[Rfam]
RNA sequence: CUUCUUGCAUCCUCGCGACUAAUGACAACCUUAACCCGCCCAUUACGGAUAAAGCCUCUCAUUAGCCGCGCGAACCUCUGCAAUGAAGAUCAUACCUGGCAACAAUACAUCAGUUUAGUGCCAAUUGCUGCCGCCUGGUUGAAAAAAGGGGCCGUAAAGGCCCCUUCUU
Number, nucleotide and partner (000 for none) at each position: 001c088002u087003u086004c085005u000006u000007g081008c080009a079010u000011c000012c000013u000014c072015g071016c070017g069018a000019c065020u064021a063022a062023u061024g060025a059026c000027a000028a000029c000030c000031u000032u000033a000034a000035c000036c000037c000038g000039c000040c000041c000042a000043u000044u000045a000046c000047g000048g000049a000050u000051a000052a000053a000054g000055c000056c000057u000058c000059u025060c024061a023062u022063u021064a020065g019066c000067c000068g000069c017070g016071c015072g014073a000074a000075c000076c000077u000078c000079u009080g008081c007082a000083a000084u000085g004086a003087a002088g001089a000090u000091c000092a000093u000094a000095c000096c000097u000098g000099g000100c000101a000102a000103c000104a000105a000106u000107a000108c000109a000110u000111c000112a000113g000114u000115u000116u000117a000118g000119u000120g000121c000122c000123a000124a000125u000126u000127g000128c000129u000130g000131c000132c000133g000134c000135c000136u000137g000138g000139u000140u000141g000142a000143a000144a000145a000146a000147a000148g164149g163150g162151g161152c160153c159154g000155u000156a000157a000158a000159g153160g152161c151162c150163c149164c148165u000166u000167c000168u000169u000
The family of this 169-nucleotide RNA sequence from Kosakonia cowanii is "SraG RNA".
A reference for the family is Argaman et al. (2001), "Novel small RNA-encoding genes in the intergenic regions of Escherichia coli", Curr Biol.
NCBI's taxonomy places the organism under Bacteria, Pseudomonadota, Enterobacteriaceae, Kosakonia, Kosakonia cowanii.
This RNA was discovered in E. coli during a large scale screen. Evidence was found for specific cleavage of this RNA.
Gene Ontology terms of the family: sRNA-mediated gene silencing and mRNA binding.